[Rfam]
RNA sequence: CAGGAUUGCCGGGUAAUCGCUCUCGCCUGGUUUUACCGGUGAGAGAGGAAAGUCCGAACACCGACGGACACCGCGCCCCGGGAAAUCCGGGGACUUUCACUUUGUGAAAGAUGGAUAGUGCCACAGAAAACAGACCGCUCCGGAUUUGUCCGGAGUAAGGGUGAAAAGGUGAGGUAAGAGCUCACCGCCUGUUCUGGUAACAGAACGGGGCAGGGUAAACCCCGCGGGGUGCAAGGUCAAGCAUGGCAGUGUGCCGUCCGUCACAACACUGCCGGGUAGACUGCAAGACCUCAUCAGCAAUGGUGAGGCCAGACAAAUGAUUACCGGUCUGCAUCCGCCUGCGGCUGCAGAUCACAGAAUUCGGCUUACAGGCAAUCCUGUCGU
Numbered sequence: 001c002a003g004g005a006u007u008g009c010c011g012g013g014u015a016a017u018c019g020c021u022c023u024c025g026c027c028u029g030g031u032u033u034u035a036c037c038g039g040u041g042a043g044a045g046a047g048g049a050a051a052g053u054c055c056g057a058a059c060a061c062c063g064a065c066g067g068a069c070a071c072c073g074c075g076c077c078c079c080g081g082g083a084a085a086u087c088c089g090g091g092g093a094c095u096u097u098c099a100c101u102u103u104g105u106g107a108a109a110g111a112u113g114g115a116u117a118g119u120g121c122c123a124c125a126g127a128a129a130a131c132a133g134a135c136c137g138c139u140c141c142g143g144a145u146u147u148g149u150c151c152g153g154a155g156u157a158a159g160g161g162u163g164a165a166a167a168g169g170u171g172a173g174g175u176a177a178g179a180g181c182u183c184a185c186c187g188c189c190u191g192u193u194c195u196g197g198u199a200a201c202a203g204a205a206c207g208g209g210g211c212a213g214g215g216u217a218a219a220c221c222c223c224g225c226g227g228g229g230u231g232c233a234a235g236g237u238c239a240a241g242c243a244u245g246g247c248a249g250u251g252u253g254c255c256g257u258c259c260g261u262c263a264c265a266a267c268a269c270u271g272c273c274g275g276g277u278a279g280a281c282u283g284c285a286a287g288a289c290c291u292c293a294u295c296a297g298c299a300a301u302g303g304u305g306a307g308g309c310c311a312g313a314c315a316a317a318u319g320a321u322u323a324c325c326g327g328u329c330u331g332c333a334u335c336c337g338c339c340u341g342c343g344g345c346u347g348c349a350g351a352u353c354a355c356a357g358a359a360u361u362c363g364g365c366u367u368a369c370a371g372g373c374a375a376u377c378c379u380g381u382c383g384u
Stems, first nucleotide, its partner, number of pairs: 001380010011369001012325007020045008050367003054364005059231004066262002071227005076092005093112001094110007113222002118220002120216003135160002137156008168186006187211001188209002191206006235282004245273006253267001256264002289308008